[Rfam]
RNA sequence: AACCGAUUGUAUAACUGGCGGAAACGUGGACAACCACGAGGGAGUACAAUCGUUCGAUUCAGCCGACCGCCUGGGCACCCAUA
Numbered sequence: 001a002a003c004c005g006a007u008u009g010u011a012u013a014a015c016u017g018g019c020g021g022a023a024a025c026g027u028g029g030a031c032a033a034c035c036a037c038g039a040g041g042g043a044g045u046a047c048a049a050u051c052g053u054u055c056g057a058u059u060c061a062g063c064c065g066a067c068c069g070c071c072u073g074g075g076c077a078c079c080c081a082u083a
Stems, first nucleotide, its partner, number of pairs: 004052009015041002017071005026037004062076003
RNA: ZMP/ZTP riboswitch aptamer (pfl RNA motif)
Organism: Paenalicyclobacillus ferrooxydans